[Rfam]
RNA sequence: GAGGGAAGGCCCCUCGGUGUCGGCGUGCAGGCGCAGGCACCAAACCAUCCACUGCUGCUGCAUUUAAGAGAUGUGGUGGUGAGCAAGAUGGGAAAAGGUCGGACGUGAGCCGAUCAGGU
Numbered sequence: 001g002a003g004g005g006a007a008g009g010c011c012c013c014u015c016g017g018u019g020u021c022g023g024c025g026u027g028c029a030g031g032c033g034c035a036g037g038c039a040c041c042a043a044a045c046c047a048u049c050c051a052c053u054g055c056u057g058c059u060g061c062a063u064u065u066a067a068g069a070g071a072u073g074u075g076g077u078g079g080u081g082a083g084c085a086a087g088a089u090g091g092g093a094a095a096a097g098g099u100c101g102g103a104c105g106u107g108a109g110c111c112g113a114u115c116a117g118g119u
Stems, first nucleotide, its partner, number of pairs: 001015005016041006023034004046118001048092004053086001054080002057077003061073004097115006